SL588 non-coding RNA: an 81-nucleotide RNA from Orthohepacivirus hominis.
The family's RNA type in Rfam is cis-regulatory element.
RNA sequence: CUGGCCCCUAUACGGGAAUGAGGGACUCGGCUGGGCAGGAUGGCUCCUGUCCCCCCGAGGUUCCCGUCCCUCUUGGGGCCC
Numbered sequence: 001c002u003g004g005c006c007c008c009u010a011u012a013c014g015g016g017a018a019u020g021a022g023g024g025a026c027u028c029g030g031c032u033g034g035g036c037a038g039g040a041u042g043g044c045u046c047c048u049g050u051c052c053c054c055c056c057g058a059g060g061u062u063c064c065c066g067u068c069c070c071u072c073u074u075g076g077g078g079c080c081c
Base pairs, nucleotide, nucleotide: 003080004079005078006077007076008075014069015068016067019066020065022063023062024061026059027058028057029056030055033052034051035050036049037048038047039046040045